[Rfam]
RNA sequence: GAUGGUUUCUUGCUUUACCUAAGAGCAAGUGGUGCGGAUGGAGGUAACACUCCCGCCCUGUUUCUUGCUUCAGGUAAAAGAGUAAGUGGCGUGCAUGAAA
Number, nucleotide and partner (000 for none) at each position: 001g000002a000003u000004g000005g000006u000007u000008u000009c029010u028011u027012g026013c025014u024015u000016u023017a000018c000019c000020u000021a000022a000023g016024a014025g013026c012027a011028a010029g009030u000031g000032g000033u000034g000035c000036g000037g000038a000039u055040g054041g053042a000043g051044g050045u000046a000047a000048c000049a000050c044051u043052c000053c041054c040055g039056c000057c074058c073059u072060g071061u000062u000063u000064c086065u085066u084067g083068c082069u081070u000071c060072a059073g058074g057075u000076a000077a000078a000079a000080g000081a069082g068083u067084a066085a065086g064087u000088g000089g000090c000091g000092u000093g000094c000095a000096u000097g000098a000099a000100a000